The family of this 60-nucleotide sequence from Neorhizobium sp. S3-V5DH is "terC RNA".
The base pairs follow the family's consensus structure, which is taken from published work.
A search with the family's covariance model found it, with a score of 52 bits.
NCBI's taxonomy places the organism under Bacteria, Pseudomonadati, Pseudomonadota, Hyphomicrobiales, Neorhizobium.
It is annotated as a cis-regulatory element.
[Rfam]
RNA sequence: AUUGCGGACCGGGCCCCUCUCGCGGAGGCUGAUCAAGCCUCGUGAUGUCGGACCGCAUCG
Number, nucleotide and partner (000 for none) at each position: 001a000002u000003u000004g000005c000006g054007g053008a000009c051010c050011g049012g048013g000014c000015c000016c000017c000018u000019c000020u000021c000022g043023c042024g041025g040026a000027g039028g038029c037030u036031g000032a000033u000034c000035a000036a030037g029038c028039c027040u025041c024042g023043u022044g000045a000046u000047g000048u012049c011050g010051g009052a000053c007054c006055g000056c000057a000058u000059c000060g000

The family has 129 seed sequences and 1,112 matches in Rfam 15.1.